[Rfam]
RNA: Pab160 RNA
Organism: Methanocaldococcus jannaschii
RNA sequence: GCCCCGGGAAACCGCGGGGGAUGAGCGACAGCCCGGCAAGCUGUGAGUCCCCUUUGCUCCCCCGGGGCACA
Numbered sequence: 001g002c003c004c005c006g007g008g009a010a011a012c013c014g015c016g017g018g019g020g021a022u023g024a025g026c027g028a029c030a031g032c033c034c035g036g037c038a039a040g041c042u043g044u045g046a047g048u049c050c051c052c053u054u055u056g057c058u059c060c061c062c063c064g065g066g067g068c069a070c071a
Base pairs, nucleotide, nucleotide: 001068002067003066004065005064006063007062008061016053017052018051019050020049021048022047025041026040031037032036